Record summary:
Iron response element I: a 30-nucleotide sequence from Podarcis muralis. The family's RNA type in Rfam is cis-regulatory element. The organism belongs to Podarcis, within Eukaryota. Pairs were carried over by alignment from the consensus structure, which is taken from published work. The family has 62 seed sequences and 6,829 matches in Rfam 15.1.
RNA sequence: GCUCUUGCUUCAACAGUGCUUGAACGGAGC
Dot-bracket structure: (((((.(.((((((...).)))))))))))